[Rfam]
RNA sequence: ACGUAGGGAAGGAGGUGAUCCGGUAGAUGAAUAUCUUCUGGACGUACGAGGUGGUCGCCGGCUGACACCCGGCAUAGUGACCAGGUUCGCCAAUCUCAGGCGACCACCGAGACCCGUGAGGGAUGCGGAAGUCCACCGCAUCAUCGCGCGGCCCGCAAGGGUGACGCAGCGAACCUCACGGGUCUUGUCCU
Numbered sequence: 001a002c003g004u005a006g007g008g009a010a011g012g013a014g015g016u017g018a019u020c021c022g023g024u025a026g027a028u029g030a031a032u033a034u035c036u037u038c039u040g041g042a043c044g045u046a047c048g049a050g051g052u053g054g055u056c057g058c059c060g061g062c063u064g065a066c067a068c069c070c071g072g073c074a075u076a077g078u079g080a081c082c083a084g085g086u087u088c089g090c091c092a093a094u095c096u097c098a099g100g101c102g103a104c105c106a107c108c109g110a111g112a113c114c115c116g117u118g119a120g121g122g123a124u125g126c127g128g129a130a131g132u133c134c135a136c137c138g139c140a141u142c143a144u145c146g147c148g149c150g151g152c153c154c155g156c157a158a159g160g161g162u163g164a165c166g167c168a169g170c171g172a173a174c175c176u177c178a179c180g181g182g183u184c185u186u187g188u189c190c191u
Stems, first nucleotide, its partner, number of pairs: 014059006060091003064087003068084001109186013123141006
Actinobacteria sRNA Ms_IGR-5: a 191-nucleotide sequence from Micrococcales bacterium KH10.
Pairs were carried over by alignment from the consensus structure.
Lineage of the source: Bacteria > Bacillati > Actinomycetota > Actinomycetes > Micrococcales.
Rfam classes the family as a small RNA.
It scores 65 bits against the family's covariance model.